[Rfam]
This 93-nucleotide RNA sequence from Enterococcus rivorum belongs to the Rfam family "Group II catalytic intron D1-D4-1". Group II introns are found in rRNA, tRNA and mRNA of organelles in fungi, plants and protists, and also in mRNA in bacteria. Rfam 15.1 lists 2,508 matches to the family in 1,144 species.

RNA sequence: AAAAGCUUCUAGUGAUAGAAUCCUGGGUCGUGAGAAGUCAGCCGAAGCCAUAGUAGUGAAGACAAUCGGUGAAAGUCGGUAAGAGCGAAGGGC
Numbered sequence: 001a002a003a004a005g006c007u008u009c010u011a012g013u014g015a016u017a018g019a020a021u022c023c024u025g026g027g028u029c030g031u032g033a034g035a036a037g038u039c040a041g042c043c044g045a046a047g048c049c050a051u052a053g054u055a056g057u058g059a060a061g062a063c064a065a066u067c068g069g070u071g072a073a074a075g076u077c078g079g080u081a082a083g084a085g086c087g088a089a090g091g092g093c
Stems, first nucleotide, its partner, number of pairs: 002024001005022001007020005038045002047093003056086002065080003